[Rfam]
RNA: Lysine riboswitch aptamer
RNA sequence: AGUGAUGGUAGAGGAGCAGGAACCAAUAGUAUCCCAUCUGAAGAGAAGAAGCUCUUGUGAGGGUGGAAGAAAGGGGAUUCUUGCCGAAGUUUAAAAGGACUUCUAGCCUUUUAUGCUGGACCUGUAUUGAAUAAAUACAGAGCUGUCACACAAUUCCCCCCAGGACUUGUGUGGAGGACUAUCUCACUA
Number, nucleotide and partner (000 for none) at each position: 001a000002g000003u000004g000005a000006u000007g183008g182009u181010a180011g179012a000013g000014g000015a000016g084017c083018a082019g081020g080021a079022a000023c076024c075025a000026a000027u000028a000029g000030u000031a000032u068033c000034c066035c065036a064037u063038c062039u061040g000041a000042a000043g000044a000045g000046a000047a000048g000049a000050a000051g000052c000053u000054c000055u000056u000057g000058u000059g000060a000061g039062g038063g037064u036065g035066g034067a000068a032069g000070a000071a000072a000073g000074g000075g024076g023077a000078u000079u021080c020081u019082u018083g017084c016085c000086g000087a000088a117089g116090u115091u000092u113093a112094a111095a110096a109097g108098g107099a000100c000101u000102u000103c000104u000105a000106g000107c098108c097109u096110u095111u094112u093113a092114u000115g090116c089117u088118g144119g143120a000121c000122c140123u139124g138125u137126a136127u135128u134129g000130a000131a000132u000133a000134a128135a127136u126137a125138c124139a123140g122141a000142g000143c119144u118145g000146u174147c173148a172149c171150a170151c169152a168153a000154u000155u000156c000157c000158c000159c000160c000161c000162a000163g000164g000165a000166c000167u000168u152169g151170u150171g149172u148173g147174g146175a000176g000177g000178a000179c011180u010181a009182u008183c007184u000185c000186a000187c000188u000189a000